[Rfam]
RNA sequence: UUGCUUGGUCAGUUUUGCUGGUUUGCAUUCAGCUUUAAACAGAUGUGUGCUGUGCAAAUCCAUGCAAAACUGAUUAAGUUG
Numbered sequence: 001u002u003g004c005u006u007g008g009u010c011a012g013u014u015u016u017g018c019u020g021g022u023u024u025g026c027a028u029u030c031a032g033c034u035u036u037a038a039a040c041a042g043a044u045g046u047g048u049g050c051u052g053u054g055c056a057a058a059u060c061c062a063u064g065c066a067a068a069a070c071u072g073a074u075u076a077a078g079u080u081g
Stems, first nucleotide, its partner, number of pairs: 003079016020061002022058007031051003